[Rfam]
Rfam assigns this 294-nucleotide sequence from Cetraspora pellucida to the family "Nuclear RNase P". Pairs were carried over by alignment from the consensus structure, which is taken from published work. It scores 126 bits against the family's covariance model. Lineage of the source: Eukaryota > Fungi > Glomeromycota > Glomeromycotina > Cetraspora.
RNA sequence: CGAACGAAAAGCUUGUGUAAGGGGAAAACAUACGGACAGUGAGGUUUCCUCGCCGUCAUCUUGACCCUUGGGAAGGUCUGAGAAAAACUAUAAAAAUCUCUAGCUGAGAUUCCUGUGAGAAUGGGGGCGAAUAAACAGAAACGAUACCCUCCUGGAUUAUAAUAUGAAGUCUUUUGACAGAUUGGCAUGGUCCAUGGAGUGUUUGAACGCGGUUCGCUAGUGGUAGCUCUAUGAAGUUCGAUACACAAGACAUCAUAUUAUGAUGUAACUCAAUUCAGACUACUCUUUCGUUCG
Numbered sequence: 001c002g003a004a005c006g007a008a009a010a011g012c013u014u015g016u017g018u019a020a021g022g023g024g025a026a027a028a029c030a031u032a033c034g035g036a037c038a039g040u041g042a043g044g045u046u047u048c049c050u051c052g053c054c055g056u057c058a059u060c061u062u063g064a065c066c067c068u069u070g071g072g073a074a075g076g077u078c079u080g081a082g083a084a085a086a087a088c089u090a091u092a093a094a095a096a097u098c099u100c101u102a103g104c105u106g107a108g109a110u111u112c113c114u115g116u117g118a119g120a121a122u123g124g125g126g127g128c129g130a131a132u133a134a135a136c137a138g139a140a141a142c143g144a145u146a147c148c149c150u151c152c153u154g155g156a157u158u159a160u161a162a163u164a165u166g167a168a169g170u171c172u173u174u175u176g177a178c179a180g181a182u183u184g185g186c187a188u189g190g191u192c193c194a195u196g197g198a199g200u201g202u203u204u205g206a207a208c209g210c211g212g213u214u215c216g217c218u219a220g221u222g223g224u225a226g227c228u229c230u231a232u233g234a235a236g237u238u239c240g241a242u243a244c245a246c247a248a249g250a251c252a253u254c255a256u257a258u259u260a261u262g263a264u265g266u267a268a269c270u271c272a273a274u275u276c277a278g279a280c281u282a283c284u285c286u287u288u289c290g291u292u293c294g
Stems, first nucleotide, its partner, number of pairs: 001294004007288003012249007020069005039053005078278005087221004096110005111126006127217006145201003250266007